[Rfam]
RNA: HNH endonuclease-associated RNA and ORF (HEARO) RNA
Organism: Anabaena sp. 90
RNA sequence: GUCAGUAACCCAACCCUAAAGGGACUGGGCUUGUAAGAGAAAUCAAGCAAGCCGUACUGACCAGACCACCCUGAGCCUAGUCUAAGGGUAGCCGUUAUUUGAGUCACGACACCCCGGAAUACGUAGCUAGUUCCCUGCUCUGUCGCUUGUGAUUAAACAGUUCUAAGGUCACUGGAACAGUGUUGCAAGCUCAAGCAAGCUCUUAUAACAGGUCGUUCGCGCCAGCGUGCCGGAGGCAUCUAGCUAACAUUAC
Numbered sequence: 001g002u003c004a005g006u007a008a009c010c011c012a013a014c015c016c017u018a019a020a021g022g023g024a025c026u027g028g029g030c031u032u033g034u035a036a037g038a039g040a041a042a043u044c045a046a047g048c049a050a051g052c053c054g055u056a057c058u059g060a061c062c063a064g065a066c067c068a069c070c071c072u073g074a075g076c077c078u079a080g081u082c083u084a085a086g087g088g089u090a091g092c093c094g095u096u097a098u099u100u101g102a103g104u105c106a107c108g109a110c111a112c113c114c115c116g117g118a119a120u121a122c123g124u125a126g127c128u129a130g131u132u133c134c135c136u137g138c139u140c141u142g143u144c145g146c147u148u149g150u151g152a153u154u155a156a157a158c159a160g161u162u163c164u165a166a167g168g169u170c171a172c173u174g175g176a177a178c179a180g181u182g183u184u185g186c187a188a189g190c191u192c193a194a195g196c197a198a199g200c201u202c203u204u205a206u207a208a209c210a211g212g213u214c215g216u217u218c219g220c221g222c223c224a225g226c227g228u229g230c231c232g233g234a235g236g237c238a239u240c241u242a243g244c245u246a247a248c249a250u251u252a253c
Base pairs, nucleotide, nucleotide: 001061002060003059004058005057006056007055010029011028012026015022016021030051031050032049033048064214065213066212068089069088070087071086072085094209095208096207097206098205101202102201103200104199109143110142113137116134117133118132119131120130124246125245126244127243128242145190146189147188148187149186150185151184152183153182157181158180160178161177162176163175164174165173